[Rfam]
RNA sequence: GCACUUGUUUUCUAGGGUUCCGCAGCGUUGGCUGGCCUGGUUCGAGAGAAAACACACAGCCGCAUUGGCUGUGACACGGAGGGAUAAAAGCCCGGGAGAU
Numbered sequence: 001g002c003a004c005u006u007g008u009u010u011u012c013u014a015g016g017g018u019u020c021c022g023c024a025g026c027g028u029u030g031g032c033u034g035g036c037c038u039g040g041u042u043c044g045a046g047a048g049a050a051a052a053c054a055c056a057c058a059g060c061c062g063c064a065u066u067g068g069c070u071g072u073g074a075c076a077c078g079g080a081g082g083g084a085u086a087a088a089a090g091c092c093c094g095g096g097a098g099a100u
Base pairs, nucleotide, nucleotide: 007053008052009051010050011049012048015043016042020040021039022037023034024033025032026031055073056072057071058070059069060068061067075095077098081093082092083091
The family of this 100-nucleotide RNA from Brevibacillus sp. WF146 is "Guanidine-I riboswitch aptamer".